[Rfam]
RNA sequence: UGCCGAAGUUUUCCUCGGUAGUUAACUGCAGUCGAUUUCUUAAUUCGGCAGUUAACUGGUGAAGGGCAU
Number, nucleotide and partner (000 for none) at each position: 001u000002g000003c000004c000005g000006a000007a000008g000009u000010u000011u000012u065013c064014c000015u062016c061017g060018g000019u058020a057021g056022u055023u054024a053025a052026c051027u050028g049029c048030a000031g000032u000033c000034g000035a000036u000037u000038u000039c000040u000041u000042a000043a000044u000045u000046c000047g000048g029049c028050a027051g026052u025053u024054a023055a022056c021057u020058g019059g000060u017061g016062a015063a000064g013065g012066g000067c000068a000069u000
RNA: MIR2629 microRNA precursor family